RNA sequence: UAAAUUGAGAGUUUGAUCCUGGCUCAGGAUGAACGCUGGCGGCGUGCCUAAUACAUGCAAGUCGAACGCACUGUGGUUGAAAUGAGAUGAGAAGCUUGCUUCAAGUCAAAUGCCAACAUUGCAGUGAGUGGCGAACGGGUGAGUAACACGUGGGAAACCUACCUCUUAGCAGGGGAUAACAUCUGGAAACAGGUGCUAAUACCGUAUAACAAUAAAAACCGCAUGGUUUUGAUUUAAAAGAUGGUUCUGCUAUCACUAAGAGAUGGUCCCGCGGUGCAUUAGUUAGUUGGUGAGGUAAAGGCUCACCAAGACGAUGAUGCAUAGCCGAGUUGAGAGACUGAUCGGCCACAAUGGGACUGAGACACGGCCCAUACUCCUACGGGAGGCAGCAGUAGGGAAUCUUCCACAAUGGACGAAAGUCUGAUGGAGCAACGCCGCGUGUGUGAUGAAGGGUUUCGGCUCGUAAAACACUGUUGUAAGAGAAGAAUGACAUUGAGAGUAACUGUUCAAUGUGUGACGGUAUCUUACCAGAAAGGAACGGCUAAAUACGUGCCAGCAGCCGCGGUAAUACGUAUGUUCCAAGCGUUAUCCGGAUUUAUU
Numbered sequence: 001u002a003a004a005u006u007g008a009g010a011g012u013u014u015g016a017u018c019c020u021g022g023c024u025c026a027g028g029a030u031g032a033a034c035g036c037u038g039g040c041g042g043c044g045u046g047c048c049u050a051a052u053a054c055a056u057g058c059a060a061g062u063c064g065a066a067c068g069c070a071c072u073g074u075g076g077u078u079g080a081a082a083u084g085a086g087a088u089g090a091g092a093a094g095c096u097u098g099c100u101u102c103a104a105g106u107c108a109a110a111u112g113c114c115a116a117c118a119u120u121g122c123a124g125u126g127a128g129u130g131g132c133g134a135a136c137g138g139g140u141g142a143g144u145a146a147c148a149c150g151u152g153g154g155a156a157a158c159c160u161a162c163c164u165c166u167u168a169g170c171a172g173g174g175g176a177u178a179a180c181a182u183c184u185g186g187a188a189a190c191a192g193g194u195g196c197u198a199a200u201a202c203c204g205u206a207u208a209a210c211a212a213u214a215a216a217a218a219c220c221g222c223a224u225g226g227u228u229u230u231g232a233u234u235u236a237a238a239a240g241a242u243g244g245u246u247c248u249g250c251u252a253u254c255a256c257u258a259a260g261a262g263a264u265g266g267u268c269c270c271g272c273g274g275u276g277c278a279u280u281a282g283u284u285a286g287u288u289g290g291u292g293a294g295g296u297a298a299a300g301g302c303u304c305a306c307c308a309a310g311a312c313g314a315u316g317a318u319g320c321a322u323a324g325c326c327g328a329g330u331u332g333a334g335a336g337a338c339u340g341a342u343c344g345g346c347c348a349c350a351a352u353g354g355g356a357c358u359g360a361g362a363c364a365c366g367g368c369c370c371a372u373a374c375u376c377c378u379a380c381g382g383g384a385g386g387c388a389g390c391a392g393u394a395g396g397g398a399a400u401c402u403u404c405c406a407c408a409a410u411g412g413a414c415g416a417a418a419g420u421c422u423g424a425u426g427g428a429g430c431a432a433c434g435c436c437g438c439g440u441g442u443g444u445g446a447u448g449a450a451g452g453g454u455u456u457c458g459g460c461u462c463g464u465a466a467a468a469c470a471c472u473g474u475u476g477u478a479a480g481a482g483a484a485g486a487a488u489g490a491c492a493u494u495g496a497g498a499g500u501a502a503c504u505g506u507u508c509a510a511u512g513u514g515u516g517a518c519g520g521u522a523u524c525u526u527a528c529c530a531g532a533a534a535g536g537a538a539c540g541g542c543u544a545a546a547u548a549c550g551u552g553c554c555a556g557c558a559g560c561c562g563c564g565g566u567a568a569u570a571c572g573u574a575u576g577u578u579c580c581a582a583g584c585g586u587u588a589u590c591c592g593g594a595u596u597u598a599u600u
Base pairs, nucleotide, nucleotide: 009025010024011023012022013021027591028590029589030588032587033586034585035584036583037582039438040437041436042435043434044433045431046430047396052394053393054392056391057390058389061132062131063130066129067128069126070125072123073122074121075120076119077118139349140348141347149273150272151271152270153269154268155267158266159265163262164261165260166259167258168257169256171205173203174202180195181194182193183192184191185190211234212233213232215230216229217228218227219226220225240254241253242252243251244250245249275321276320277319282312283311284310287309288308289307290306291305292304293303294302324346325345326344327343328339329338330337331336351372352371353370354369355368374385375384376383377382402428404427405426406425410423411422412421413420414419441471442470443469444468451462452461453460454459475532476528477527478526479525480524481523485518491512492511493510494509495508496507535580536579537578538577539576546575547574548573549572550571556563557562
Dot-bracket structure: ........(((((.......))))).((((.((((((.(((((((((....(((.(((..(((..((.((.((((((........................................)))))).)).)))))......(((.......(((((((..((...(((((((.(.((.....((((((....))))))......)).).....(((.((((((....)))))).))).....((((((...)))))).)))))))..))))))))).(((....(((..((((((((.......)))))))))))......)))..((((((((....))))...))))))).(((((............))))).((((....))))...)))))).).....(.(((...(((((....))))).)))).)).))))))..((((......((((....)))).....))))...(((((((...(.....((((((..........)))))).....)....))))))...)..(((((......(((((.....((....)).......)))))))))).)))))))))).........
A member of the RNA family "Bacterial small subunit ribosomal RNA" from Weissella kandleri, 600 nucleotides of a longer RNA. Taxonomically the source falls in Weissella (Bacteria, Bacillati, Bacilli, Lactobacillales). On this family, see Yusupov et al., Science 2001: "Crystal structure of the ribosome at 5.5 A resolution". It scores 1615 bits against the family's covariance model.